[Rfam]
RNA sequence: AGUUAAAAGCAGAGGCUUCCCGCUUCUCGCCUAAGUGAUUUUAAUCGCUGGGCUUUACGAAUGAAAGACCUAUUUCGAUAGGGAUAGCGGGUAUCCAUUGUGGGUAUCCGCUAUUUUUCUGCUUU
Numbered sequence: 001a002g003u004u005a006a007a008a009g010c011a012g013a014g015g016c017u018u019c020c021c022g023c024u025u026c027u028c029g030c031c032u033a034a035g036u037g038a039u040u041u042u043a044a045u046c047g048c049u050g051g052g053c054u055u056u057a058c059g060a061a062u063g064a065a066a067g068a069c070c071u072a073u074u075u076c077g078a079u080a081g082g083g084a085u086a087g088c089g090g091g092u093a094u095c096c097a098u099u100g101u102g103g104g105u106a107u108c109c110g111c112u113a114u115u116u117u118u119c120u121g122c123u124u125u
Base pairs, nucleotide, nucleotide: 011027012026013025014024015023016022029053030052031051035048036047037046038045039044086112087111088110089109090108091107092106093105094104095103
Ribosomal protein L20 leader: a 125-nucleotide RNA sequence from Fructilactobacillus sanfranciscensis. Rfam describes the family as follows. This family is a putative r-protein leader autoregulatory structure found in B. subtilis and other low-GC Gram-positive bacteria. A search with the family's covariance model found it, with a score of 59 bits. The source organism's lineage runs through Bacteria, Bacillati, Bacillota, Fructilactobacillus and Fructilactobacillus sanfranciscensis. Its family is annotated with regulation of gene expression in the Gene Ontology.